[Rfam]
RNA: Small nucleolar RNA psi28S-1192
RNA sequence: GGAAUGUCUGUCCUAAUACCAUGGCGUUAUUUAGCGUCAUGGCUUCGCUUUCAGACGAAAAUAACUCUUCAAAUUUAUCCUAGUGUAAUUAUGUUCUAAAUGAAAAUUGCACUGGCAUUUUGAAGAUACAAAG
Dot-bracket structure: ....((((((........(((((((((.....).)))))))).........)))))).........((((((.......((((((........................))))))....))))))........